[Rfam]
The record is a 139-nucleotide RNA sequence from Pseudomonas sp. M47T1, which matches "radC RNA" in Rfam. By type it is a cis-regulatory element. Rfam 15.1 lists 500 matches to the family in 142 species.

RNA sequence: AGAAGGCACGAGCGCUGUCGAUGACAGCACCCAGGUGGUCCGAACCUUAAAGGCCACUCCACAACCGUGGUGGUUCGCCCCAAGUAUGUUCAGCAUCCGGCAGUGCAUAUGGUCACCCCAGCCCAGGUGUGAUGGAUGC
Numbered sequence: 001a002g003a004a005g006g007c008a009c010g011a012g013c014g015c016u017g018u019c020g021a022u023g024a025c026a027g028c029a030c031c032c033a034g035g036u037g038g039u040c041c042g043a044a045c046c047u048u049a050a051a052g053g054c055c056a057c058u059c060c061a062c063a064a065c066c067g068u069g070g071u072g073g074u075u076c077g078c079c080c081c082a083a084g085u086a087u088g089u090u091c092a093g094c095a096u097c098c099g100g101c102a103g104u105g106c107a108u109a110u111g112g113u114c115a116c117c118c119c120a121g122c123c124c125a126g127g128u129g130u131g132a133u134g135g136a137u138g139c
Base pairs, nucleotide, nucleotide: 014028015027016026017025018024019023035057036056037055038054039053040052043075044074045073046072059070060069061068062067105139106138107137112133113132114131115130116129118127119126